[Rfam]
RNA sequence: GUAUUCUUAGGCCCGAUCUUGAGGCAGGAACUGAGUAGUUGUUGAACUUGCUCUAUGUUGUUCGUUCACCCACUAUUCGGUUCCUGUCCCAAGAUCGAGUCUAUGAAUAU
Numbered sequence: 001g002u003a004u005u006c007u008u009a010g011g012c013c014c015g016a017u018c019u020u021g022a023g024g025c026a027g028g029a030a031c032u033g034a035g036u037a038g039u040u041g042u043u044g045a046a047c048u049u050g051c052u053c054u055a056u057g058u059u060g061u062u063c064g065u066u067c068a069c070c071c072a073c074u075a076u077u078c079g080g081u082u083c084c085u086g087u088c089c090c091a092a093g094a095u096c097g098a099g100u101c102u103a104u105g106a107a108u109a110u
Stems, first nucleotide, its partner, number of pairs: 001110006008103005014097008023088011035076002
RNA: MIR1861 microRNA precursor family
Organism: Oryza sativa